The family of this 28-nucleotide RNA sequence from Chunga burmeisteri is "L19-Flavobacteria ribosomal protein leader". It is annotated as a cis-regulatory leader. The family's consensus secondary structure is taken from published work. A search with the family's covariance model found it, with a score of 32 bits.

Nucleotides: 028
Base pairs, nucleotide, nucleotide: 001028002027003026004025008023010020011019012018
Number, partner (000 for none) and nucleotide at each position: 001028u002027a003026a004025c005000c006000u007000c008023u009000g010020a011019c012018c013000a014000a015000g016000g017000a018012g019011g020010u021000g022000g023008a024000u025004g026003u027002u028001a